[Rfam]
RNA sequence: UGCGCAGGGCGUGGCGGAGGACGAUGUUGCGGAACUUCACGCCCUUGAGGCGGGCGGUGCGGAUGUACUGCGCCGUCAUCACCUCGGUCAUCGAGGCGCGGGUCAUCCGGGCGAUGUAGCCCAUCCCGUAGAGCGCGAUGGUGACGACCGGCAGCGUGAAGUUGACGAAGUUGGCAUCC
Numbered sequence: 001u002g003c004g005c006a007g008g009g010c011g012u013g014g015c016g017g018a019g020g021a022c023g024a025u026g027u028u029g030c031g032g033a034a035c036u037u038c039a040c041g042c043c044c045u046u047g048a049g050g051c052g053g054g055c056g057g058u059g060c061g062g063a064u065g066u067a068c069u070g071c072g073c074c075g076u077c078a079u080c081a082c083c084u085c086g087g088u089c090a091u092c093g094a095g096g097c098g099c100g101g102g103u104c105a106u107c108c109g110g111g112c113g114a115u116g117u118a119g120c121c122c123a124u125c126c127c128g129u130a131g132a133g134c135g136c137g138a139u140g141g142u143g144a145c146g147a148c149c150g151g152c153a154g155c156g157u158g159a160a161g162u163u164g165a166c167g168a169a170g171u172u173g174g175c176a177u178c179c
Base pairs, nucleotide, nucleotide: 005140006139009136010135011134012133017127019126020125021124028123029122031120038113040111042109046105047104048103051100052099054097055075056074057073058072059071060070061069062068082096083095084094085093086092146178147177149174151172155164156163

The record is a 179-nucleotide sequence from Pseudoroseicyclus tamaricis, which matches "Ruegeria cis52 sRNA" in Rfam. Lineage of the source: Bacteria > Pseudomonadota > Rhodobacterales > Paracoccaceae > Pseudoroseicyclus. Its family is annotated with regulation of gene expression in the Gene Ontology. Rfam 15.1 lists 277 matches to the family in 275 species.